[Rfam]
RNA sequence: AUGGUCAUCAUUUUUGUGAUUGGUGCAAUUGCGGCUAUAAAUCGCAUUUUAAUUGCAUAGUCACAAAAGUGAUGGCUUU
Numbered sequence: 001a002u003g004g005u006c007a008u009c010a011u012u013u014u015u016g017u018g019a020u021u022g023g024u025g026c027a028a029u030u031g032c033g034g035c036u037a038u039a040a041a042u043c044g045c046a047u048u049u050u051a052a053u054u055g056c057a058u059a060g061u062c063a064c065a066a067a068a069g070u071g072a073u074g075g076c077u078u079u
Base pairs, nucleotide, nucleotide: 003077004076005075006074008072009071010070011069012068013067014066015065016064017063018062019061020060024057025056026055027054028053029052030051
RNA: mir-153 microRNA precursor family